[Rfam]
RNA sequence: GAGAUGCACCAGGGGUGCCUGUAUCUGCAUAGCAUGCUAGCAGUUCAGGCUGAGACAGUCCCUUCGAACCUGAUCAGGGUGAUGCCUGCGUAGGGAGCGUGCAUUAUUUUUUUU
Numbered sequence: 001g002a003g004a005u006g007c008a009c010c011a012g013g014g015g016u017g018c019c020u021g022u023a024u025c026u027g028c029a030u031a032g033c034a035u036g037c038u039a040g041c042a043g044u045u046c047a048g049g050c051u052g053a054g055a056c057a058g059u060c061c062c063u064u065c066g067a068a069c070c071u072g073a074u075c076a077g078g079g080u081g082a083u084g085c086c087u088g089c090g091u092a093g094g095g096a097g098c099g100u101g102c103a104u105u106a107u108u109u110u111u112u113u114u
Stems, first nucleotide, its partner, number of pairs: 006102004011063004016057001017050005069094004075088004
RNA: TPP riboswitch aptamer (THI element)